RNA sequence: GGCCACCCAAGUAGGGCGUUUCCUCUCUCAGGGAACAAACGGACGGGGGGCUAUAACCUAAGGGUAGGCAAUCGCCUGCCUCACAAAACGGAAGACAGAAG
Numbered sequence: 001g002g003c004c005a006c007c008c009a010a011g012u013a014g015g016g017c018g019u020u021u022c023c024u025c026u027c028u029c030a031g032g033g034a035a036c037a038a039a040c041g042g043a044c045g046g047g048g049g050g051c052u053a054u055a056a057c058c059u060a061a062g063g064g065u066a067g068g069c070a071a072u073c074g075c076c077u078g079c080c081u082c083a084c085a086a087a088a089c090g091g092a093a094g095a096c097a098g099a100a101g
Base pairs, nucleotide, nucleotide: 001052002051003050004049006048007047008046063080064079065078066077067076068075069074
This 101-nucleotide RNA from Thalassovita mediterranea belongs to the Rfam family "L2-Alphaproteobacteria ribosomal protein leader". A search with the family's covariance model found it, with a score of 42 bits. By type it is a cis-regulatory leader. Taxonomically the source falls in Thalassovita (Bacteria, Pseudomonadati, Pseudomonadota, Roseobacteraceae).